[Rfam]
Source information: Shown here is a 185-nucleotide RNA sequence from Pelagirhabdus alkalitolerans, a member of the family "Lysine riboswitch aptamer".

RNA sequence: AGUGGGUAUAGAGGUCGCGGAUAAAAUAAGUAAUUGAGUGGUAGGUGAGAUAAGCACCUAUAACCAUCAUUGAAAGGGUUAUUCGCCGAAGCUAAUUAAAGCUUACUCUUUAAUUGGCUGGUAUAGUAUUUAAAAAAUGCUGUACUGUCAUAUAGGUUUAUUCUAUAUGGAGGGCUAUCUCACGC
Number, nucleotide and partner (000 for none) at each position: 001a000002g000003u000004g000005g000006g180007u000008a178009u177010a176011g175012a000013g000014g000015u000016c000017g086018c085019g084020g083021a082022u081023a080024a079025a000026a000027u000028a000029a000030g000031u000032a000033a071034u000035u069036g068037a067038g000039u066040g065041g064042u000043a000044g000045g000046u000047g000048a000049g000050a000051u000052a000053a000054g000055c000056a000057c000058c000059u000060a000061u000062a000063a000064c041065c040066a039067u037068c036069a035070u000071u033072g000073a000074a000075a000076g000077g000078g000079u024080u023081a022082u021083u020084c019085g018086c017087c000088g000089a000090a119091g118092c117093u116094a115095a114096u113097u112098a111099a110100a109101g108102c000103u000104u000105a000106c000107u000108c101109u100110u099111u098112a097113a096114u095115u094116g093117g092118c091119u090120g146121g145122u144123a143124u142125a141126g140127u139128a138129u137130u136131u000132a000133a000134a000135a000136a130137a129138u128139g127140c126141u125142g124143u123144a122145c121146u120147g000148u170149c169150a168151u167152a166153u165154a164155g000156g000157u000158u000159u000160a000161u000162u000163c000164u154165a153166u152167a151168u150169g149170g148171a000172g000173g000174g000175c011176u010177a009178u008179c000180u006181c000182a000183c000184g000185c000
Rfam 15.1 lists 3,224 matches to the family in 1,923 species. Rfam's curators write: Riboswitches are metabolite binding domains within certain messenger RNAs that serve as precision sensors for their corresponding targets. Lineage of the source: Bacteria > Bacilli > Caryophanales > Bacillaceae > Pelagirhabdus.